[Rfam]
RNA sequence: AGAUGAGAGAAACACCCCGCCCGCAGGGGACUGCGGACGACGCCUGGACGAAGCCUCCCCAGUUUCGUCUCGGUUGUGCCUUCGCGCACACAGCCGGAGCUUCUGGCUCCGGAAAUCCUCACCGAUCGGA
Numbered sequence: 001a002g003a004u005g006a007g008a009g010a011a012a013c014a015c016c017c018c019g020c021c022c023g024c025a026g027g028g029g030a031c032u033g034c035g036g037a038c039g040a041c042g043c044c045u046g047g048a049c050g051a052a053g054c055c056u057c058c059c060c061a062g063u064u065u066c067g068u069c070u071c072g073g074u075u076g077u078g079c080c081u082u083c084g085c086g087c088a089c090a091c092a093g094c095c096g097g098a099g100c101u102u103c104u105g106g107c108u109c110c111g112g113a114a115a116u117c118c119u120c121a122c123c124g125a126u127c128g129g130a
Stems, first nucleotide, its partner, number of pairs: 004121004009117002018039002021036006042074003046070002049067006076089004094112006100105001122129002

Rfam assigns this 130-nucleotide RNA from Streptomyces tsukubensis to the family "Streptomyces RNA 5676".
Identified by deep sequencing of transcriptome at the end of exponential growth phase. Appears longer on northern blot than sequencing transcript. This indicates processing step. Streptomyces specific.
The pairing is the family consensus, mapped onto this sequence.
The family's RNA type in Rfam is small RNA.
A reference for the family is Vockenhuber et al. (2011), "Deep sequencing-based identification of small non-coding RNAs in Streptomyces coelicolor", RNA Biol.